RNA sequence: CUAGGCUUUGUGGUUUUCCCUUUGUCAUCCUAUGCCUGGGAGAUUCUCGGGAGGCUGGGAUAGUAAAGGGAAGCUCACGUAGCUAUGGG
Numbered sequence: 001c002u003a004g005g006c007u008u009u010g011u012g013g014u015u016u017u018c019c020c021u022u023u024g025u026c027a028u029c030c031u032a033u034g035c036c037u038g039g040g041a042g043a044u045u046c047u048c049g050g051g052a053g054g055c056u057g058g059g060a061u062a063g064u065a066a067a068g069g070g071a072a073g074c075u076c077a078c079g080u081a082g083c084u085a086u087g088g089g
Stems, first nucleotide, its partner, number of pairs: 017071006024064002028060005034055004
Rfam assigns this 89-nucleotide sequence from Podarcis muralis to the family "mir-204 microRNA precursor family". The match comes from Rfam's covariance-model search (65 bits). For this family Rfam cites "The developmental miRNA profiles of zebrafish as determined by small RNA cloning" (Chen et al., Genes Dev, 2005). Pairs were carried over by alignment from the consensus structure, which was predicted with RNAalifold. The organism belongs to Podarcis, within Eukaryota. Rfam links the family to the GO terms RISC complex and miRNA-mediated post-transcriptional gene silencing.